Rfam assigns this 46-nucleotide sequence from a Pirellulaceae bacterium to the family "Acido-Lenti-1 RNA". The match comes from Rfam's covariance-model search (45 bits). The source organism's lineage runs through Bacteria, Planctomycetota, Planctomycetia, Pirellulales and Pirellulaceae. Pairs were carried over by alignment from the consensus structure, which is taken from published work. It is annotated as a small RNA.
RNA sequence: CCCCGACCUCACGGUCGGGGCUAUUUCGUUUCGGCCCUCCGGGCCU
Numbered sequence: 001c002c003c004c005g006a007c008c009u010c011a012c013g014g015u016c017g018g019g020g021c022u023a024u025u026u027c028g029u030u031u032c033g034g035c036c037c038u039c040c041g042g043g044c045c046u
Stems, first nucleotide, its partner, number of pairs: 001020008033045005